[Rfam]
RNA sequence: CAAAUCAAACAGGGGAGCUACAAAAGUGGCUGAGAGUAAGGUGUGUGCCUUAGACCCUUAACCUGAUUCGGAUAAUGCCGGCGUAGGGAGCUUUAAGAUAGGAUUU
Numbered sequence: 001c002a003a004a005u006c007a008a009a010c011a012g013g014g015g016a017g018c019u020a021c022a023a024a025a026g027u028g029g030c031u032g033a034g035a036g037u038a039a040g041g042u043g044u045g046u047g048c049c050u051u052a053g054a055c056c057c058u059u060a061a062c063c064u065g066a067u068u069c070g071g072a073u074a075a076u077g078c079c080g081g082c083g084u085a086g087g088g089a090g091c092u093u094u095a096a097g098a099u100a101g102g103a104u105u106u
Stems, first nucleotide, its partner, number of pairs: 007093002010090001011058004017030005037052005062087004068081004
RNA: TPP riboswitch aptamer (THI element)